Rfam assigns this 133-nucleotide RNA sequence from Sphenodon punctatus to the family "Small nucleolar RNA SNORA55". ACA55 is a member of the H/ACA class of snoRNA that guide the sites of modification of uridines to pseudouridines. The family's RNA type in Rfam is H/ACA-box small nucleolar RNA. Rfam 15.1 lists 1,476 matches to the family in 616 species. The base pairs follow the family's consensus structure, which was predicted with PFOLD.

[Rfam]
RNA sequence: GCACCUGAAUCUUUCCCACUCCUGGCUGUGCAGUGCAGGUUUGGGGACACAUGGUGCCACAGCAAAGCAGAGGAAAUCCAGACAAGUUACCUUUCACAUUCCUGGGACUUGUCUCUACAACUCUGCAACACUU
Number, nucleotide and partner (000 for none) at each position: 001g057002c056003a055004c054005c053006u000007g000008a000009a000010u000011c000012u000013u047014u046015c045016c044017c043018a042019c000020u000021c039022c038023u000024g000025g000026c000027u000028g000029u000030g000031c000032a000033g000034u000035g000036c000037a000038g022039g021040u000041u000042u018043g017044g016045g015046g014047a013048c000049a000050c000051a000052u000053g005054g004055u003056g002057c001058c000059a000060c000061a000062g000063c000064a000065a000066a000067g126068c125069a124070g123071a122072g121073g000074a000075a000076a000077u000078c000079c000080a114081g113082a112083c111084a110085a109086g108087u107088u000089a000090c000091c000092u000093u000094u105095c104096a103097c000098a000099u000100u000101c000102c000103u096104g095105g094106g000107a087108c086109u085110u084111g083112u082113c081114u080115c000116u000117a000118c000119a000120a000121c072122u071123c070124u069125g068126c067127a000128a000129c000130a000131c000132u000133u000